[Rfam]
RNA sequence: GACUGGUUUGAAGAUAGUGAGUUAUCUUGACGGUUUACAGUCAGUUAAAGAUUGAAUUCAUUUUUCUACUCUUUCUACUCUUUGACCCUUUCUUACUAAUGCAAUUGACUAGUCUUAA
Numbered sequence: 001g002a003c004u005g006g007u008u009u010g011a012a013g014a015u016a017g018u019g020a021g022u023u024a025u026c027u028u029g030a031c032g033g034u035u036u037a038c039a040g041u042c043a044g045u046u047a048a049a050g051a052u053u054g055a056a057u058u059c060a061u062u063u064u065u066c067u068a069c070u071c072u073u074u075c076u077a078c079u080c081u082u083u084g085a086c087c088c089u090u091u092c093u094u095a096c097u098a099a100u101g102c103a104a105u106u107g108a109c110u111a112g113u114c115u116u117a118a
Stems, first nucleotide, its partner, number of pairs: 001114008010106002015101001016097006040079001043076002
Y RNA: a 118-nucleotide sequence from Galemys pyrenaicus. The base pairs follow the family's consensus structure, which is taken from published work. The family has 104 seed sequences and 26,986 matches in Rfam 15.1. Taxonomically the source falls in Galemys (Eukaryota, Eumetazoa, Vertebrata, Amniota). The match comes from Rfam's covariance-model search (47 bits). On this family, see Teunissen et al., Nucleic Acids Res 2000: "Conserved features of Y RNAs: a comparison of experimentally derived secondary structures". Y RNAs are components of the Ro ribonucleoprotein particle (Ro RNP), in association with Ro60 and La proteins. The Y RNAs and Ro60 and La proteins are well conserved, but the function of the Ro RNP is not known. In humans the RNA component can be one of four small RNAs -- hY1, hY3, hY4 and hY5. These small RNAs are predicted to fold into a conserved secondary structure containing three stem structures. The largest of the four, hY1, contains an additional hairpin. This family includes a significant number of annotated pseudogenes and the model is expected to discriminate poorly between real and Y RNA related pseudogenes.